[Rfam]
About this RNA
This 176-nucleotide RNA from Clostridium sp. CAG:265 belongs to the Rfam family "Lysine riboswitch aptamer". From the family's description: Riboswitches are metabolite binding domains within certain messenger RNAs that serve as precision sensors for their corresponding targets. A search with the family's covariance model found it, with a score of 119 bits. Pairs were carried over by alignment from the consensus structure, which is taken from published work. NCBI's taxonomy places the organism under Bacteria, Bacillati, Bacillota, Clostridia, Clostridium.
Nucleotides: 176
Stems, first nucleotide, its partner, number of pairs: 007170005016078009032063007082114003085110008115141002118138008143161007
Number, partner (000 for none) and nucleotide at each position: 001000c002000g003000u004000a005000a006000g007170g008169g009168u010167a011166g012000a013000g014000g015000c016078g017077c018076a019075a020074u021073a022072a023071u024070u025000a026000u027000u028000a029000g030000u031000a032063u033062u034061a035060u036059u037058a038057a039000u040000g041000a042000g043000g044000u045000a046000a047000g048000c049000a050000c051000u052000a053000u054000g055000a056000u057038u058037u059036a060035g061034u062033a063032a064000g065000a066000a067000a068000g069000g070024a071023a072022u073021u074020g075019u076018u077017g078016c079000c080000g081000a082114a083113g084112u085110a086109u087108a088107c089106a090105a091104c092103u093000g094000a095000u096000g097000c098000u099000u100000u101000a102000a103092g104091g105090u106089u107088g108087u109086a110085u111000a112084g113083c114082u115141g116140g117000g118138g119137a120136u121135g122134c123133a124132u125131a126000a127000a128000a129000u130000a131125u132124a133123u134122g135121u136120a137119u138118c139000a140116c141115u142000g143161u144160c145159a146158c147157a148156a149155a150000u151000u152000a153000c154000a155149u156148u157147u158146g159145u160144g161143g162000u163000g164000a165000g166011c167010u168009a169008u170007c171000a172000u173000u174000u175000g176000a